[Rfam]
RNA: SAM riboswitch aptamer (S box leader)
Organism: Flavobacterium crassostreae
Nucleotides: 121
Stems, first nucleotide, its partner, number of pairs: 002120006013043004021032003026095004044087004049083002051079001053077005091113001096110004
Number, partner (000 for none) and nucleotide at each position: 001000a002120u003119g004118u005117u006116a007115u008000a009000a010000a011000g012000a013043a014042a015041g016040g017000a018000c019000g020000a021032g022031g023030g024000a025000a026095u027094a028093g029092a030023c031022c032021c033000g034000u035000u036000g037000a038000a039000g040016c041015c042014u043013u044087a045086g046085c047084a048000a049083c050082c051079c052000u053077u054076g055075g056074a057073u058000u059000a060000a061000u062000g063000g064000u065000a066000u067000u068000u069000a070000u071000u072000u073057a074056u075055u076054c077053a078000u079051g080000a081000a082050g083049g084047u085046g086045c087044u088000a089000c090000a091113u092029u093028c094027u095026a096110c097109c098108a099107u100000a101000a102000u103000u104000u105000a106000a107099a108098u109097g110096g111000g112000a113091a114000g115007a116006u117005a118004a119003c120002a121000a